[Rfam]
RNA sequence: UGGGCUGUAUCAAAAAUGGAACAGCACCAAUUCAACCUUUAUUUAUUAUAGCAUGUGAACAGGGUCUGCCUUGAUCCAAUUAGGACUAGGACAGAGGG
Numbered sequence: 001u002g003g004g005c006u007g008u009a010u011c012a013a014a015a016a017u018g019g020a021a022c023a024g025c026a027c028c029a030a031u032u033c034a035a036c037c038u039u040u041a042u043u044u045a046u047u048a049u050a051g052c053a054u055g056u057g058a059a060c061a062g063g064g065u066c067u068g069c070c071u072u073g074a075u076c077c078a079a080u081u082a083g084g085a086c087u088a089g090g091a092c093a094g095a096g097g098g
Base pairs, nucleotide, nucleotide: 001029002028003027004025005024006023007022008021010020011019066094067093068092069090070089071088073086075085076084077083
RNA: pan motif
Organism: Alkalihalobacillus alcalophilus